RNA sequence: AUGUGGACACAGUCCUUCAUUUUGUUAAUUUUGUGAAAAGAAGGAUCGUGUCCAUAGAG
Numbered sequence: 001a002u003g004u005g006g007a008c009a010c011a012g013u014c015c016u017u018c019a020u021u022u023u024g025u026u027a028a029u030u031u032u033g034u035g036a037a038a039a040g041a042a043g044g045a046u047c048g049u050g051u052c053c054a055u056a057g058a059g
Stems, first nucleotide, its partner, number of pairs: 002056009012046001020039004
The record is a 59-nucleotide sequence from Monodelphis domestica, which matches "mir-7386 microRNA precursor family" in Rfam. Pairs were carried over by alignment from the consensus structure, which was predicted with RNAalifold. It scores 44 bits against the family's covariance model. Gene Ontology terms of the family: miRNA-mediated post-transcriptional gene silencing and RISC complex.